[Rfam]
RNA: TPP riboswitch aptamer (THI element)
Organism: Streptococcus hyointestinalis
RNA sequence: CAUAUCACAAAGGAGUGCCUUGAGCUGAGAUCGCAUUUGCGAAAUCCUCUAACCUGAUCUCGUUAGGACGAGCGUAGGGAUUGUGACAUUGACGGUU
Number, nucleotide and partner (000 for none) at each position: 001c000002a000003u000004a000005u000006c085007a084008c083009a082010a081011a048012g047013g046014a045015g000016u042017g025018c024019c000020u000021u000022g000023a000024g018025c017026u000027g000028a000029g000030a000031u000032c041033g040034c039035a000036u000037u000038u000039g034040c033041g032042a016043a000044a000045u014046c013047c012048u011049c000050u000051a000052a000053c078054c077055u076056g075057a000058u000059c072060u071061c070062g069063u000064u000065a000066g000067g000068a000069c062070g061071a060072g059073c000074g000075u056076a055077g054078g053079g000080a000081u010082u009083g008084u007085g006086a000087c000088a000089u000090u000091g000092a000093c000094g000095g000096u000097u000